[Rfam]
Notes:
A member of the RNA family "Mammalian CPEB3 ribozyme" from Crocodylus porosus, 77 nucleotides long. Gene Ontology term of the family: RNA nuclease activity.
RNA sequence: AGUCAGAAGUUUGAAGCUAUAGCAGAAGUGCUCACAGUGCAGCCCUGUCAGAUUCCAAUUAAUCUGCAAAUUCUGCU
Number, nucleotide and partner (000 for none) at each position: 001a000002g000003u000004c000005a000006g000007a000008a000009g000010u000011u000012u000013g045014a000015a000016g043017c042018u041019a000020u000021a077022g076023c075024a074025g073026a072027a071028g040029u039030g038031c000032u000033c000034a000035c000036a000037g000038u030039g029040c028041a018042g017043c016044c000045c013046u000047g000048u000049c066050a065051g064052a063053u062054u061055c000056c000057a000058a000059u000060u000061a054062a053063u052064c051065u050066g049067c000068a000069a000070a000071u027072u026073c025074u024075g023076c022077u021
It scores 47 bits against the family's covariance model. Lineage of the source: Eukaryota > Bilateria > Chordata > Sarcopterygii > Crocodylus.